Rfam assigns this 63-nucleotide sequence to the family "GP20-b RNA".
Rfam's curators put it in the seed alignment.
RNA sequence: GGACAAGUCCGUAGUCCUAACAAAAGCGGAGCGUCUGGUGAUGGAGAACACCUAAAAAGCCUA
Numbered sequence: 001g002g003a004c005a006a007g008u009c010c011g012u013a014g015u016c017c018u019a020a021c022a023a024a025a026g027c028g029g030a031g032c033g034u035c036u037g038g039u040g041a042u043g044g045a046g047a048a049c050a051c052c053u054a055a056a057a058a059g060c061c062u063a
Stems, first nucleotide, its partner, number of pairs: 001017004009029004037052004